[Rfam]
RNA: MIR6288 microRNA precursor family
RNA sequence: UGCAACCAGUAUAUUUGUUUUAUUUUAAAGGGGUCCUAUCAUGCUAAAGCAUGAUAGGACCCCUUUAAAAUAAAACAAAUAUACUGGUUGCA
Numbered sequence: 001u002g003c004a005a006c007c008a009g010u011a012u013a014u015u016u017g018u019u020u021u022a023u024u025u026u027a028a029a030g031g032g033g034u035c036c037u038a039u040c041a042u043g044c045u046a047a048a049g050c051a052u053g054a055u056a057g058g059a060c061c062c063c064u065u066u067a068a069a070a071u072a073a074a075a076c077a078a079a080u081a082u083a084c085u086g087g088u089u090g091c092a
Stems, first nucleotide, its partner, number of pairs: 002091038